About this RNA:
The family of this 86-nucleotide sequence from Branchiostoma lanceolatum is "mir-2060 microRNA precursor family". Gene Ontology terms of the family: miRNA-mediated post-transcriptional gene silencing and RISC complex. It scores 71 bits against the family's covariance model.

RNA sequence: GUUUGUGGAUAGUGUUCAGCACCAAGGACAGGCAUGUAUAUCUGUGUGUGGAUAGUGUUUAGCACCAAGGACAGGCAUGCAUAUCU
Numbered sequence: 001g002u003u004u005g006u007g008g009a010u011a012g013u014g015u016u017c018a019g020c021a022c023c024a025a026g027g028a029c030a031g032g033c034a035u036g037u038a039u040a041u042c043u044g045u046g047u048g049u050g051g052a053u054a055g056u057g058u059u060u061a062g063c064a065c066c067a068a069g070g071a072c073a074g075g076c077a078u079g080c081a082u083a084u085c086u
Base pairs, nucleotide, nucleotide: 001072002071010067012065013064014063015062016061018059019058020057021056022055024053026047028045029044030043031042032041034039
Dot-bracket structure: ((.......(.(((((.(((((.(.(.(((((.(....).))))).).....).))))).))))).)...))..............